[Rfam]
RNA: COG3943 RNA
RNA sequence: CACGCUCCACACGAUUAUUAUUUUAAUUGAGCAUGCGGCCAUCCAAAAGAGGAUGUAACACCAGUAGCUAUAGUUGGUAGGGAUACCAAUUGUUAGUUACAUUAGGUGU
Numbered sequence: 001c002a003c004g005c006u007c008c009a010c011a012c013g014a015u016u017a018u019u020a021u022u023u024u025a026a027u028u029g030a031g032c033a034u035g036c037g038g039c040c041a042u043c044c045a046a047a048a049g050a051g052g053a054u055g056u057a058a059c060a061c062c063a064g065u066a067g068c069u070a071u072a073g074u075u076g077g078u079a080g081g082g083a084u085a086c087c088a089a090u091u092g093u094u095a096g097u098u099a100c101a102u103u104a105g106g107u108g109u
Stems, first nucleotide, its partner, number of pairs: 012029005040055005058109005064100007073090006
Dot-bracket structure: ...........(((((........)))))..........(((((......)))))..(((((.(((((((..((((((......))))))...)))))))....)))))